[Rfam]
RNA sequence: AGCCGUGUGGUGAGCACAGAGCGAACUAUUCUUUCGCCUUUUACUAAAGAAUACCGUGUGCUCGCCACUUGAAGCGGCAUACGCCAAUUUUGGAAAGGGUGUUCGUAAAAAAAAAA
Numbered sequence: 001a002g003c004c005g006u007g008u009g010g011u012g013a014g015c016a017c018a019g020a021g022c023g024a025a026c027u028a029u030u031c032u033u034u035c036g037c038c039u040u041u042u043a044c045u046a047a048a049g050a051a052u053a054c055c056g057u058g059u060g061c062u063c064g065c066c067a068c069u070u071g072a073a074g075c076g077g078c079a080u081a082c083g084c085c086a087a088u089u090u091u092g093g094a095a096a097g098g099g100u101g102u103u104c105g106u107a108a109a110a111a112a113a114a115a116a
Base pairs, nucleotide, nucleotide: 003077004076005075006074008067009066010065011064012063013062014061015060016059017058018057027053028052029051030050031049032048033047034046100114102112
Annotation:
U5 spliceosomal RNA: a 116-nucleotide RNA sequence from Theobroma cacao. Lineage of the source: Eukaryota > Viridiplantae > Streptophyta > Magnoliopsida > Theobroma. By type it is a spliceosomal small nuclear RNA. The match comes from Rfam's covariance-model search (81 bits). U5 RNA is a component of both types of known spliceosome. The precise function of this molecule is unknown, though it is known that the 5' loop is required for splice site selection and p220 binding, and that both the 3' stem-loop and the Sm site are important for Sm protein binding and cap methylation.